[Rfam]
Group I catalytic intron: a 302-nucleotide RNA sequence from Modicella reniformis. The literature on the family includes a 1990 paper in Annu Rev Biochem by Cech, "Self-splicing of group I introns". Rfam links the family to the GO term Group I intron splicing. It scores 56 bits against the family's covariance model. Lineage of the source: Eukaryota > Fungi > Mortierellomycota > Mortierellaceae > Modicella.
RNA sequence: AUUUUGUUUUUUUCAAAAACGUAUAAUAUAAAUAUUCCUCAAUGUGUUCGUUAAAUUUUGCUAUAUGCUGGAAACCCCUAAAACUUAAUAUACGGUAAGAUUAACUUCACCCCGCCCGGGUAAUGCAAGGGUUUAAACCAAGCUAAAUCUUAAAGUAAAAAUUAUUAAGAUGAAACAAUGGGCAAUCAGCAGGAAACCAGGGCACUUAAGAAAAAUUGGGAUCCUUAGAGAUUAUACGCAAAAUACCCGGGAUUAAUCAAUUCAUGGUAAAGAUAUAGUCCGAACAAGUAUGCAAAUAUUUG
Numbered sequence: 001a002u003u004u005u006g007u008u009u010u011u012u013u014c015a016a017a018a019a020c021g022u023a024u025a026a027u028a029u030a031a032a033u034a035u036u037c038c039u040c041a042a043u044g045u046g047u048u049c050g051u052u053a054a055a056u057u058u059u060g061c062u063a064u065a066u067g068c069u070g071g072a073a074a075c076c077c078c079u080a081a082a083a084c085u086u087a088a089u090a091u092a093c094g095g096u097a098a099g100a101u102u103a104a105c106u107u108c109a110c111c112c113c114g115c116c117c118g119g120g121u122a123a124u125g126c127a128a129g130g131g132u133u134u135a136a137a138c139c140a141a142g143c144u145a146a147a148u149c150u151u152a153a154a155g156u157a158a159a160a161a162u163u164a165u166u167a168a169g170a171u172g173a174a175a176c177a178a179u180g181g182g183c184a185a186u187c188a189g190c191a192g193g194a195a196a197c198c199a200g201g202g203c204a205c206u207u208a209a210g211a212a213a214a215a216u217u218g219g220g221a222u223c224c225u226u227a228g229a230g231a232u233u234a235u236a237c238g239c240a241a242a243a244u245a246c247c248c249g250g251g252a253u254u255a256a257u258c259a260a261u262u263c264a265u266g267g268u269a270a271a272g273a274u275a276u277a278g279u280c281c282g283a284a285c286a287a288g289u290a291u292g293c294a295a296a297u298a299u300u301u302g
Stems, first nucleotide, its partner, number of pairs: 003023001005021007055244005061238001066191006076182003192224002197219004206210001228281001230280005246267002250263005287300005